[Rfam]
RNA: Mycobacterium sRNA 6715
RNA sequence: CGCUCAUCGAUAACGCACUCAGCAAGAAACCACAGGUAGUGACGAUUGAGCCGACCGACAAGGCGUUCAAGACGCACGGCUGCCAACCCUGGCAGAACACGGGCAGCGAAGGCGCUGCCCCUGCCGGAGUUCCUGGACCUGAAGCGGGGGCCCAACUACAAAAUCAGCUCGGCAUCCUCAACGGCUUACUCGGACCGACUGGAGGGCGAGUG
Numbered sequence: 001c002g003c004u005c006a007u008c009g010a011u012a013a014c015g016c017a018c019u020c021a022g023c024a025a026g027a028a029a030c031c032a033c034a035g036g037u038a039g040u041g042a043c044g045a046u047u048g049a050g051c052c053g054a055c056c057g058a059c060a061a062g063g064c065g066u067u068c069a070a071g072a073c074g075c076a077c078g079g080c081u082g083c084c085a086a087c088c089c090u091g092g093c094a095g096a097a098c099a100c101g102g103g104c105a106g107c108g109a110a111g112g113c114g115c116u117g118c119c120c121c122u123g124c125c126g127g128a129g130u131u132c133c134u135g136g137a138c139c140u141g142a143a144g145c146g147g148g149g150g151c152c153c154a155a156c157u158a159c160a161a162a163a164u165c166a167g168c169u170c171g172g173c174a175u176c177c178u179c180a181a182c183g184g185c186u187u188a189c190u191c192g193g194a195c196c197g198a199c200u201g202g203a204g205g206g207c208g209a210g211u212g
Stems, first nucleotide, its partner, number of pairs: 001208005007203002015023002029037003039077003043074002046070006053064001055063002080095006098123002101120008126153002129151007165201003169198004175194003